[Rfam]
RNA sequence: GAGUCAGAAGUGAGAAACUUCUGCGCCGGAUGACCAAGGGUUCCUGGGGCAGGUUGAUCCGCCCAGGGUUAGUCGGGGCCUAAGGCGAGGCCGACAGGCGUAGUCGAUGGAUGACGGGUUGAUAUUCCCGUACCCGCUGUGGUGCGCCCAUACUGAACCUGGUGAUACUAAGAGUCCUUAGCCCCCUGUUGCCUUCGGGUGGCGGGUGAGGGUGAACGCUCGGCCUGAUCUGGUAGUAGGUAAGCGAUGGGGUGACGCAGGAAGGUAGCCCAUCCCGGGCGGUGGUUGUCCCGGGGUAAGCAUGUAGGGCGAGGGGUAGGUAAAUCCGCUCCUCAUGUGCCUGAGGUGUGAUGCCGAGCCGAUUGUGGUGAAGUGGGUGAUCCUAUGCUGCCGAGAAAAGCCUCUAGUGAGUGCCGUGGCGGCCCGUACCCUAAACCGACUCAGGUGGUCAGGUAGAGAAUACCGAGGCGGU
Numbered sequence: 001g002a003g004u005c006a007g008a009a010g011u012g013a014g015a016a017a018c019u020u021c022u023g024c025g026c027c028g029g030a031u032g033a034c035c036a037a038g039g040g041u042u043c044c045u046g047g048g049g050c051a052g053g054u055u056g057a058u059c060c061g062c063c064c065a066g067g068g069u070u071a072g073u074c075g076g077g078g079c080c081u082a083a084g085g086c087g088a089g090g091c092c093g094a095c096a097g098g099c100g101u102a103g104u105c106g107a108u109g110g111a112u113g114a115c116g117g118g119u120u121g122a123u124a125u126u127c128c129c130g131u132a133c134c135c136g137c138u139g140u141g142g143u144g145c146g147c148c149c150a151u152a153c154u155g156a157a158c159c160u161g162g163u164g165a166u167a168c169u170a171a172g173a174g175u176c177c178u179u180a181g182c183c184c185c186c187u188g189u190u191g192c193c194u195u196c197g198g199g200u201g202g203c204g205g206g207u208g209a210g211g212g213u214g215a216a217c218g219c220u221c222g223g224c225c226u227g228a229u230c231u232g233g234u235a236g237u238a239g240g241u242a243a244g245c246g247a248u249g250g251g252g253u254g255a256c257g258c259a260g261g262a263a264g265g266u267a268g269c270c271c272a273u274c275c276c277g278g279g280c281g282g283u284g285g286u287u288g289u290c291c292c293g294g295g296g297u298a299a300g301c302a303u304g305u306a307g308g309g310c311g312a313g314g315g316g317u318a319g320g321u322a323a324a325u326c327c328g329c330u331c332c333u334c335a336u337g338u339g340c341c342u343g344a345g346g347u348g349u350g351a352u353g354c355c356g357a358g359c360c361g362a363u364u365g366u367g368g369u370g371a372a373g374u375g376g377g378u379g380a381u382c383c384u385a386u387g388c389u390g391c392c393g394a395g396a397a398a399a400g401c402c403u404c405u406a407g408u409g410a411g412u413g414c415c416g417u418g419g420c421g422g423c424c425c426g427u428a429c430c431c432u433a434a435a436c437c438g439a440c441u442c443a444g445g446u447g448g449u450c451a452g453g454u455a456g457a458g459a460a461u462a463c464c465g466a467g468g469c470g471g472u
Stems, first nucleotide, its partner, number of pairs: 005023006024470004032450004038430002043067006052060002074426004079110002084105003088101001090099003114131005134422011244408002249404005257391004263384003268378005274295006296354002300349004307342003311334007319327002358369004436445002452464004
Shown here is a 472-nucleotide part of an RNA from Sphaerimonospora thailandensis, a member of the family "Bacterial large subunit ribosomal RNA".
Its family is annotated with ribosome and structural constituent of ribosome in the Gene Ontology.
NCBI's taxonomy places the organism under Bacteria, Bacillati, Actinomycetota, Streptosporangiaceae, Sphaerimonospora.